[Rfam]
RNA sequence: GUAAUGUUUCUUGCUCAAAUGAGUAUUCCAAGAUCACCAAGCAUUGACGCAUUUCAAAACGUAAAUGAGAUGCUGGUGUUGGUGAUCGCGAGAUGCUCAUUUGGGCAACCAAUAUUAC
Number, nucleotide and partner (000 for none) at each position: 001g000002u000003a000004a115005u114006g113007u112008u111009u000010c000011u108012u107013g106014c105015u104016c103017a102018a101019a100020u099021g098022a097023g096024u095025a094026u093027u092028c000029c090030a000031a000032g000033a000034u000035c000036a000037c000038c000039a000040a000041g000042c000043a000044u000045u000046g000047a000048c000049g000050c000051a000052u000053u000054u000055c000056a000057a000058a000059a000060c000061g000062u000063a000064a000065a000066u000067g000068a000069g000070a000071u000072g000073c000074u000075g000076g000077u000078g000079u000080u000081g000082g000083u000084g000085a000086u000087c000088g000089c000090g029091a000092g027093a026094u025095g024096c023097u022098c021099a020100u019101u018102u017103g016104g015105g014106c013107a012108a011109c000110c000111a008112a007113u006114a005115u004116u000117a000118c000
RNA: MIR828 microRNA precursor family